[Rfam]
Shown here is a 91-nucleotide RNA from Terrihalobacillus insolitus, a member of the family "c-di-GMP-I riboswitch aptamer".
Lineage of the source: Bacteria > Bacilli > Caryophanales > Bacillaceae > Terrihalobacillus.
RNA sequence: UUCAGAUAAAGGCAAACCUCGCUGAAAAGCAGGGACGCAAAAUCACAGGUCUACGGCGGUAAGUGCUGGCUACGGCGGCUGGAUUUCCUGG
Numbered sequence: 001u002u003c004a005g006a007u008a009a010a011g012g013c014a015a016a017c018c019u020c021g022c023u024g025a026a027a028a029g030c031a032g033g034g035a036c037g038c039a040a041a042a043u044c045a046c047a048g049g050u051c052u053a054c055g056g057c058g059g060u061a062a063g064u065g066c067u068g069g070c071u072a073c074g075g076c077g078g079c080u081g082g083a084u085u086u087c088c089u090g091g
Stems, first nucleotide, its partner, number of pairs: 012038002017033003021030003041085004046081003049076003056070002059067001